A member of the RNA family "tRNA" from Coptis chinensis, 79 nucleotides long. The match comes from Rfam's covariance-model search (49 bits). The base pairs follow the family's consensus structure, which is taken from published work. Rfam links the family to the GO term triplet codon-amino acid adaptor activity. Taxonomically the source falls in Coptis (Eukaryota, Viridiplantae, Streptophytina, Ranunculaceae). Rfam classes the family as a transfer RNA.
RNA sequence: GGAUCUUUAGCUCAAUGGAAGAGCACUUGAGUGAGAAAAUACAUCUCAAGAGAUGGUGGUUCAAAUCCACCAAGGUCAU
Dot-bracket structure: .((((((..((((.......)))).(((((...............)))))....(((((.......)))))))))))..